Nucleotides: 114
Base pairs, nucleotide, nucleotide: 001034002033003032004030005029006028007027008026010025011024012023013022083110084109085108086106087105088104090102093100094099
Number, partner (000 for none) and nucleotide at each position: 001034g002033a003032g004030g005029c006028g007027g008026u009000a010025u011024c012023g013022g014000c015000a016000u017000u018000u019000g020000g021000a022013c023012c024011g025010a026008a027007c028006u029005g030004c031000a032003c033002u034001c035000u036000g037000c038000a039000u040000g041000u042000g043000c044000a045000u046000c047000g048000a049000a050000u051000c052000a053000c054000a055000a056000c057000a058000g059000c060000a061000u062000a063000c064000a065000g066000c067000a068000a069000g070000c071000a072000u073000a074000c075000g076000u077000u078000g079000g080000a081000u082000u083110c084109u085108g086106c087105u088104c089000u090102g091000a092000g093100c094099c095000g096000a097000a098000g099094g100093g101000a102090c103000c104088g105087a106086g107000a108085c109084a110083g111000a112000a113000g114000g
The record is a 114-nucleotide RNA from Paenibacillus albilobatus, which matches "pan motif" in Rfam. A search with the family's covariance model found it, with a score of 40 bits. Rfam classes the family as a cis-regulatory element. The source organism's lineage runs through Bacteria, Bacilli, Caryophanales, Paenibacillaceae and Paenibacillus.